[Rfam]
The record is a 75-nucleotide RNA sequence from Aphis craccivora, which matches "mir-10 microRNA precursor family" in Rfam. Rfam 15.1 lists 3,853 matches to the family in 853 species. The literature on the family includes a 2001 paper in Science by Lee and Ambros, "An extensive class of small RNAs in Caenorhabditis elegans". It scores 50 bits against the family's covariance model. NCBI's taxonomy places the organism under Eukaryota, Opisthokonta, Pterygota, Paraneoptera, Aphis.
RNA sequence: UUGCUACGACCCGUAGAUCCGAACUUGUGUCGCAAAGUUUAGUAUCGCAAGUUCGUUUCUAGAGGAUACAGCCAC
Numbered sequence: 001u002u003g004c005u006a007c008g009a010c011c012c013g014u015a016g017a018u019c020c021g022a023a024c025u026u027g028u029g030u031c032g033c034a035a036a037g038u039u040u041a042g043u044a045u046c047g048c049a050a051g052u053u054c055g056u057u058u059c060u061a062g063a064g065g066a067u068a069c070a071g072c073c074a075c
Stems, first nucleotide, its partner, number of pairs: 003072003010065002015060003020055010